[Rfam]
RNA sequence: GGUCAUGCUUUUCCACAGCUUUCUUGAACUUUCUUUCUUUCUGUUUAGUCUCUUUUUUAAGAUUGAACACCAUUGAAAGCUCAAGAAAGCUGUGGGAGAAUAUGGCAA
Dot-bracket structure: ..(((((.....(((.((((((.((((.(((((.........................................))))).)))).)))))).))).....)))))...